[Rfam]
RNA sequence: AAGCCGUAUAUGCUCCGAGCCUUUCUGCCUAAAGCUGGUCUGCCAUGGCGAAAGGCCGCCGGGUAAACCUGGAAACGGGUUUGCCUCCCGUGGUUGGAAAGGAGCUUCGAUUUGUCGCAA
Numbered sequence: 001a002a003g004c005c006g007u008a009u010a011u012g013c014u015c016c017g018a019g020c021c022u023u024u025c026u027g028c029c030u031a032a033a034g035c036u037g038g039u040c041u042g043c044c045a046u047g048g049c050g051a052a053a054g055g056c057c058g059c060c061g062g063g064u065a066a067a068c069c070u071g072g073a074a075a076c077g078g079g080u081u082u083g084c085c086u087c088c089c090g091u092g093g094u095u096g097g098a099a100a101g102g103a104g105c106u107u108c109g110a111u112u113u114g115u116c117g118c119a120a
Stems, first nucleotide, its partner, number of pairs: 006111001012105005019056007027049003034043002061086011087097002
A member of the RNA family "Molybdenum/Tungsten riboswitch aptamer (Moco RNA motif)" from Desulfofundulus thermobenzoicus, 120 nucleotides long. On this family, see Weinberg et al., Nucleic Acids Res 2007: "Identification of 22 candidate structured RNAs in bacteria using the CMfinder comparative genomics pipeline". It scores 82 bits against the family's covariance model. Pairs were carried over by alignment from the consensus structure, which is taken from published work.